RNA sequence: CCGCCCGUCGCUCCUACCGAUUGAAUGGUCCGGUGAAGUGUUCGGAUCACGGCGAUGUGGGCGGUUCGCUACCUACGACGUCGUGAGAAGUCCACUAAACCUUAUCAUUUAGAGGAAGGAGAAAUCAUAACAAGGUUUCUGUAGGUGAACCUACGGAAGGAUCAUUG
Numbered sequence: 001c002c003g004c005c006c007g008u009c010g011c012u013c014c015u016a017c018c019g020a021u022u023g024a025a026u027g028g029u030c031c032g033g034u035g036a037a038g039u040g041u042u043c044g045g046a047u048c049a050c051g052g053c054g055a056u057g058u059g060g061g062c063g064g065u066u067c068g069c070u071a072c073c074u075a076c077g078a079c080g081u082c083g084u085g086a087g088a089a090g091u092c093c094a095c096u097a098a099a100c101c102u103u104a105u106c107a108u109u110u111a112g113a114g115g116a117a118g119g120a121g122a123a124a125u126c127a128u129a130a131c132a133a134g135g136u137u138u139c140u141g142u143a144g145g146u147g148a149a150c151c152u153a154c155g156g157a158a159g160g161a162u163c164a165u166u167g
Stems, first nucleotide, its partner, number of pairs: 001134001003131001007126001011121005017115002021111001023110007032101003037096004043090001047086008056077002059073002136159010
A member of the RNA family "Eukaryotic small subunit ribosomal RNA" from Cucumis melo, 167 nucleotides of a longer RNA. Clan: SSU clan. Its family is annotated with structural constituent of ribosome and ribosome in the Gene Ontology. For this family Rfam cites "Crystal structure of the ribosome at 5.5 A resolution" (Yusupov et al., Science, 2001). Taxonomically the source falls in Cucumis melo subsp. agrestis (Eukaryota, Spermatophyta, Mesangiospermae, Cucumis). A search with the family's covariance model found it, with a score of 1632 bits.